[Rfam]
RNA sequence: UACUCUUCCACCGUUCGUCUCGACUGGCGCCGUCCCACGCAUCAGUCUUGUCGAAUGGUGGGUGAGUU
Numbered sequence: 001u002a003c004u005c006u007u008c009c010a011c012c013g014u015u016c017g018u019c020u021c022g023a024c025u026g027g028c029g030c031c032g033u034c035c036c037a038c039g040c041a042u043c044a045g046u047c048u049u050g051u052c053g054a055a056u057g058g059u060g061g062g063u064g065a066g067u068u
Stems, first nucleotide, its partner, number of pairs: 002067004007062011019050001022047006029040002